[Rfam]
RNA: Bacterial small subunit ribosomal RNA, nucleotides 1 to 583
Organism: uncultured bacterium
RNA sequence: UUUACGGAGAGUUUGAUCCUGGCUCAGAACGAACGCUGGCGGCGUGGAUUAGGCAUGCAAGUCGAACGGAUUUCUUAGCUGUUUCGAGAAAUCAGUGGCGAAAGGGUGAGUAACACGUGGGUAACCUACCCAAAGGAUUGGGACAACCAACCGAAAGGUUGGCUAAUACCGGAUAAGACCACGACUUCGAGAGAAGAUGAGGUCAAAGAUGGGGAUCUGCUUCGGCGGACCUAUCGCCUAUGGAGGGGCCCGCGGCCUAUCAGCUUGUUGGUGAGGUAAUGGCUCACCAAGGCUAUGACGGGUAGCUGGUCUGAGAGGAUGGUCAGCCACAUCGGGACUGAGAUACUGCCCGGACUCCUACGGGAGGCUGCAGUCGAGAAUCUUUCGCAAUGGGGGAAACCCUGACGAAGCGACGCCGCGUGCAGGAUUAAGGCCUUCGGGUUGUAAACUGCUGUCGCCUGGGACGAACAAUGUCCAGGUGAAUAAUCUGGUUAUUCGACGGUACCAGGAAAGGAAGCCACGGCUAACUCUGUGCCAGCAGCCGCGGUAAGACAGAGGUGGCAAGCGUUGUUCGGAUUCAUUG
Dot-bracket structure: ........(((((.......))))).((((.((((((.((((((((.....(((.(((..(((..((.(..(((((.(.....).))))).)..)))))......(((.......(((((((..((...(((.(((.((((.....((((((....))))))......)))).....(((.((..(((....)))..)).)))....((((((................)))))).))).)))..))))))))).(((....(((..((((((((.......)))))))))))......)))..((((((((....))))...))))))).(((((............))))).((((....))))...)))))).......(.(((...(((((....))))).)))).)).))))))..((((......((((....)))).....))))...(.(((((...(.....((...................)).....)....)))))....)..(((((......(((((.....((....)).......)))))))))).))))))))))..........